[Rfam]
The record is a 103-nucleotide RNA sequence from Sporosarcina pasteurii, which matches "pan motif" in Rfam. The family's RNA type in Rfam is cis-regulatory element.

RNA sequence: AGGGCAGUAUCAUAUUCGAACUGCACCAACAGAAAAAUUGAUAAUUAAAUAGUUCGUUCAAACAUGAUCUGCCUUGAUCUUAAAAUAAGACAGGGACGGAGGA
Numbered sequence: 001a002g003g004g005c006a007g008u009a010u011c012a013u014a015u016u017c018g019a020a021c022u023g024c025a026c027c028a029a030c031a032g033a034a035a036a037a038u039u040g041a042u043a044a045u046u047a048a049a050u051a052g053u054u055c056g057u058u059c060a061a062a063c064a065u066g067a068u069c070u071g072c073c074u075u076g077a078u079c080u081u082a083a084a085a086u087a088a089g090a091c092a093g094g095g096a097c098g099g100a101g102g103a
Stems, first nucleotide, its partner, number of pairs: 002027002004024005010019002069099003072095005078090003